[Rfam]
RNA sequence: UUUUUUUCUUUUGCAGUGUCAAAAAAAAAGG
Numbered sequence: 001u002u003u004u005u006u007u008c009u010u011u012u013g014c015a016g017u018g019u020c021a022a023a024a025a026a027a028a029a030g031g
Stems, first nucleotide, its partner, number of pairs: 001031007009024005014018001